The family of this 72-nucleotide RNA from Drosophila persimilis is "mir-3 microRNA precursor family". The base pairs follow the family's consensus structure, which was predicted with RNAalifold.
[Rfam]
RNA sequence: AUCCUGGGAUGCAUUUUGUGCAGUUAUGUCUACGUGAUCAUCCUCAUCACUGGGCAAAGUGUGUCUCAGGAU
Dot-bracket structure: ....((((((((((..(((.((((........................)))).)))..))))))))))....
The family is grouped with related families in Rfam's "mir-3 clan". Gene Ontology terms of the family: miRNA-mediated post-transcriptional gene silencing and RISC complex.